[Rfam]
RNA: TPP riboswitch aptamer (THI element)
RNA sequence: GAAGUCCACUAGGGGCGCUUGUUAGCUGAGAUAAGGCGAUGCCUUAGUCCCUUUGAACCUGAUCUGGUUAGUACCAGCGUAGGAAAGUGGAGUCGACGGUCA
Numbered sequence: 001g002a003a004g005u006c007c008a009c010u011a012g013g014g015g016c017g018c019u020u021g022u023u024a025g026c027u028g029a030g031a032u033a034a035g036g037c038g039a040u041g042c043c044u045u046a047g048u049c050c051c052u053u054u055g056a057a058c059c060u061g062a063u064c065u066g067g068u069u070a071g072u073a074c075c076a077g078c079g080u081a082g083g084a085a086a087g088u089g090g091a092g093u094c095g096a097c098g099g100u101c102a
Stems, first nucleotide, its partner, number of pairs: 006090005011052004017026003033045005058083004064077004